A member of the RNA family "Histone 3' UTR stem-loop" from Clupea harengus, 47 nucleotides long. The mRNAs of metazoan histone genes lack a poly-A tail. 3' end processing occurs at a site between a highly conserved stem-loop (modelled by this family) and a purine rich region around 20 nts downstream (the histone downstream element, or HDE). The stem-loop is bound by a 31 kDa stem-loop binding protein (SLBP - also termed the histone hairpin binding protein, or HBP). The match comes from Rfam's covariance-model search (38 bits). Rfam 15.1 lists 44,596 matches to the family in 976 species. The source organism's lineage runs through Eukaryota, Chordata, Teleostei, Clupeinae and Clupea. On this family, see Williams and Marzluff, Nucleic Acids Res 1995: "The sequence of the stem and flanking sequences at the 3' end of histone mRNA are critical determinants for the binding of the stem-loop binding protein".

[Rfam]
RNA sequence: ACAAAGGCUCUUUUAAGAGCCAUCCAAUUAUUUUUUUUAAAGUACAU
Numbered sequence: 001a002c003a004a005a006g007g008c009u010c011u012u013u014u015a016a017g018a019g020c021c022a023u024c025c026a027a028u029u030a031u032u033u034u035u036u037u038u039a040a041a042g043u044a045c046a047u
Stems, first nucleotide, its partner, number of pairs: 006021006